[Rfam]
RNA sequence: AUUAAAUAACAUAUGUCAUCUUGUAUAAGCCCAUUAAUCGGAGUGGGCGUCUCGACCAGGCAACCGUAAAUUGCCCCAGGCUACAAGAGGAUGCAUAGGCUGU
Numbered sequence: 001a002u003u004a005a006a007u008a009a010c011a012u013a014u015g016u017c018a019u020c021u022u023g024u025a026u027a028a029g030c031c032c033a034u035u036a037a038u039c040g041g042a043g044u045g046g047g048c049g050u051c052u053c054g055a056c057c058a059g060g061c062a063a064c065c066g067u068a069a070a071u072u073g074c075c076c077c078a079g080g081c082u083a084c085a086a087g088a089g090g091a092u093g094c095a096u097a098g099g100c101u102g103u
Stems, first nucleotide, its partner, number of pairs: 019088007029048007057079001059075005
RNA: Purine riboswitch aptamer